[Rfam]
RNA sequence: UGGCGGGGGAGCACUACAACCGGAGGAGCCUGCGGUUUAAUUGGACUCAACGCCGGACAUCUCACCAGCACCGACAAUGUGCAGUGAAGGCCAGUUUGAUGAGCUUGCUGGAGCCAUUGAGAGGAGGUGCAUGGCCGCCGUCAGCUCGUACCGUGAGGCAUCCUGUUAAGUCAGGCAACGAGCGAGAUCCGCGCCCUUAGUUGCCAGCAGCAUCUUGCGAUGGCUGGGUACACUAGGGGGACUGCCGCUGCUAAAGCGGAGGAAGGAACGGGCAACGGUAGGUCAGCAUGCCCCGAAUGUGCUGGGCAACACGCGGGCUACAAUGGCCAAGACAACGGGUCGCUACCCCGAGAGGGGACGCUAAUCCCAUAAACUUGGUCGUAGUUCGGAUUGAGGGCUGCAACUCGCCCUCAUGAAGCUGGAUUCGGUAGUAAUCGCGUGUCAUAAGCGCGCGGUGAAUACGUCCCUGCUCCUUGCACACACCGCCCGUCAAAGCACCCGAGUAGGGUCCGGAUGAGGCCAUCAUGCGAUGGUCAAAUCUGGGCUUUGCAAGGGGGCUUAAGUCGUAACAAGGUAGCCGUAGAGGAAUCUGCGGCUGGA
Numbered sequence: 001u002g003g004c005g006g007g008g009g010a011g012c013a014c015u016a017c018a019a020c021c022g023g024a025g026g027a028g029c030c031u032g033c034g035g036u037u038u039a040a041u042u043g044g045a046c047u048c049a050a051c052g053c054c055g056g057a058c059a060u061c062u063c064a065c066c067a068g069c070a071c072c073g074a075c076a077a078u079g080u081g082c083a084g085u086g087a088a089g090g091c092c093a094g095u096u097u098g099a100u101g102a103g104c105u106u107g108c109u110g111g112a113g114c115c116a117u118u119g120a121g122a123g124g125a126g127g128u129g130c131a132u133g134g135c136c137g138c139c140g141u142c143a144g145c146u147c148g149u150a151c152c153g154u155g156a157g158g159c160a161u162c163c164u165g166u167u168a169a170g171u172c173a174g175g176c177a178a179c180g181a182g183c184g185a186g187a188u189c190c191g192c193g194c195c196c197u198u199a200g201u202u203g204c205c206a207g208c209a210g211c212a213u214c215u216u217g218c219g220a221u222g223g224c225u226g227g228g229u230a231c232a233c234u235a236g237g238g239g240g241a242c243u244g245c246c247g248c249u250g251c252u253a254a255a256g257c258g259g260a261g262g263a264a265g266g267a268a269c270g271g272g273c274a275a276c277g278g279u280a281g282g283u284c285a286g287c288a289u290g291c292c293c294c295g296a297a298u299g300u301g302c303u304g305g306g307c308a309a310c311a312c313g314c315g316g317g318c319u320a321c322a323a324u325g326g327c328c329a330a331g332a333c334a335a336c337g338g339g340u341c342g343c344u345a346c347c348c349c350g351a352g353a354g355g356g357g358a359c360g361c362u363a364a365u366c367c368c369a370u371a372a373a374c375u376u377g378g379u380c381g382u383a384g385u386u387c388g389g390a391u392u393g394a395g396g397g398c399u400g401c402a403a404c405u406c407g408c409c410c411u412c413a414u415g416a417a418g419c420u421g422g423a424u425u426c427g428g429u430a431g432u433a434a435u436c437g438c439g440u441g442u443c444a445u446a447a448g449c450g451c452g453c454g455g456u457g458a459a460u461a462c463g464u465c466c467c468u469g470c471u472c473c474u475u476g477c478a479c480a481c482a483c484c485g486c487c488c489g490u491c492a493a494a495g496c497a498c499c500c501g502a503g504u505a506g507g508g509u510c511c512g513g514a515u516g517a518g519g520c521c522a523u524c525a526u527g528c529g530a531u532g533g534u535c536a537a538a539u540c541u542g543g544g545c546u547u548u549g550c551a552a553g554g555g556g557g558c559u560u561a562a563g564u565c566g567u568a569a570c571a572a573g574g575u576a577g578c579c580g581u582a583g584a585g586g587a588a589u590c591u592g593c594g595g596c597u598g599g600a
Base pairs, nucleotide, nucleotide: 001480002479003477004476005475007474008473009472010471011470012469013468016464017463020428021427022426023425024424025321027319028318029317030316031315032314033313034312035310036309041056042055043054044053065305066304067303068302069301070300071299075119076118077117078116081114082113089109090108091107093105094104095103123294124293126292127291128290129289132288133287134283135282136281137279138278139277140276144183145182146181147180148179149178151158152157162175163174164173165172189271190270191269194239195238196237197236198235199234200233204228205227208226209225210224211222212221213220214219242262243261245259246258247257248256249255325380326379327378328377329376330375331374337368338367339366342361343360346357347356348355349354387418392413393412394411395410396409397408398407434456435455436454437453438452439451440450441449483573485570488566489565491563493560494559495558496557498555499554500553503550504549505548506547507546508545509544510543511542512541513540514539515538518535519534520533521532522531523530524529575598576597577596578595579594580593581592582591583590584589
RNA: Archaeal small subunit ribosomal RNA, nucleotides 865 to 1464
Organism: halophilic archaeon